A member of the RNA family "transfer-messenger RNA" from Thermoleophilum album, 365 nucleotides long. Its family is annotated with RNA catabolic process in the Gene Ontology. The organism belongs to Thermoleophilum, within Bacteria. It scores 156 bits against the family's covariance model. By type it is a non-coding RNA gene. For this family Rfam cites "Variations on the tmRNA gene" (Mao et al., RNA Biol, 2010). The family's consensus secondary structure is taken from published work. The family is grouped with related families in Rfam's "tRNA clan".
RNA sequence: GGGGACGGCUGGCUUCGACGUGGGCGUCCGUGGGGGCAGUUGCGAGCCGAGGUCCCCGGUCGGCCUCGUAAAACAACCGGGACAAAAAGCAAGUGCGGACCGUAACCACGAGUUCGCCCUCGCCGCUUAAUUAGACGGUGAGGUGUCGGCCCGGCGCUCGGCCCGUGGCGCCGGGAUCGGCAUCAGCUAACGGGCUCGCCCGCUCCGGGCGCCUCCGGCGGAGCGGGGACGCCAAACGGGGGCUGGUUCUCCGCGAGCCCGCCGGCGCGGCGAGCGGGGGACGAGAACGAAGCGCCGGCUACGCUCGUAGACGCUGUCCCGUCACGCGCCCGCGGACCCGGGUUCGACUCCCGGCGUCUCCACUU
Numbered sequence: 001g002g003g004g005a006c007g008g009c010u011g012g013c014u015u016c017g018a019c020g021u022g023g024g025c026g027u028c029c030g031u032g033g034g035g036g037c038a039g040u041u042g043c044g045a046g047c048c049g050a051g052g053u054c055c056c057c058g059g060u061c062g063g064c065c066u067c068g069u070a071a072a073a074c075a076a077c078c079g080g081g082a083c084a085a086a087a088a089g090c091a092a093g094u095g096c097g098g099a100c101c102g103u104a105a106c107c108a109c110g111a112g113u114u115c116g117c118c119c120u121c122g123c124c125g126c127u128u129a130a131u132u133a134g135a136c137g138g139u140g141a142g143g144u145g146u147c148g149g150c151c152c153g154g155c156g157c158u159c160g161g162c163c164c165g166u167g168g169c170g171c172c173g174g175g176a177u178c179g180g181c182a183u184c185a186g187c188u189a190a191c192g193g194g195c196u197c198g199c200c201c202g203c204u205c206c207g208g209g210c211g212c213c214u215c216c217g218g219c220g221g222a223g224c225g226g227g228g229a230c231g232c233c234a235a236a237c238g239g240g241g242g243c244u245g246g247u248u249c250u251c252c253g254c255g256a257g258c259c260c261g262c263c264g265g266c267g268c269g270g271c272g273a274g275c276g277g278g279g280g281a282c283g284a285g286a287a288c289g290a291a292g293c294g295c296c297g298g299c300u301a302c303g304c305u306c307g308u309a310g311a312c313g314c315u316g317u318c319c320c321g322u323c324a325c326g327c328g329c330c331c332g333c334g335g336a337c338c339c340g341g342g343u344u345c346g347a348c349u350c351c352c353g354g355c356g357u358c359u360c361c362a363c364u365u
Stems, first nucleotide, its partner, number of pairs: 001361007019334009030323001033320008043307005048068005055081006118143008144182006150175004155170004161195006199227009211244001213242004246282009257271003261299004266294003338354005